[Rfam]
Guanidine-II riboswitch aptamer (mini-ykkC): a 48-nucleotide RNA from Albimonas pacifica.
RNA sequence: GCCGGCGGACGACCGCCGCCCCUCUUCCGAUCCGCCGGGACGACCCGG
Numbered sequence: 001g002c003c004g005g006c007g008g009a010c011g012a013c014c015g016c017c018g019c020c021c022c023u024c025u026u027c028c029g030a031u032c033c034g035c036c037g038g039g040a041c042g043a044c045c046c047g048g
Stems, first nucleotide, its partner, number of pairs: 001020001003018006035048005
Rfam links the family to the GO term regulation of gene expression. Lineage of the source: Bacteria > Pseudomonadati > Alphaproteobacteria > Paracoccaceae > Albimonas.